[Rfam]
RNA: Small nucleolar RNA Z43
Organism: Rhamnella rubrinervis
RNA sequence: GGGCAGUGACGAUUGUGAUUAAGGUCUCGUUCGUCGUAACUGGCUGUAUAAGCCUUGCCGACCAUCAUAUAUAUCACCACCCAUAUUCUGAGUCC
Numbered sequence: 001g002g003g004c005a006g007u008g009a010c011g012a013u014u015g016u017g018a019u020u021a022a023g024g025u026c027u028c029g030u031u032c033g034u035c036g037u038a039a040c041u042g043g044c045u046g047u048a049u050a051a052g053c054c055u056u057g058c059c060g061a062c063c064a065u066c067a068u069a070u071a072u073a074u075c076a077c078c079a080c081c082c083a084u085a086u087u088c089u090g091a092g093u094c095c
Stems, first nucleotide, its partner, number of pairs: 001095004046055001047051001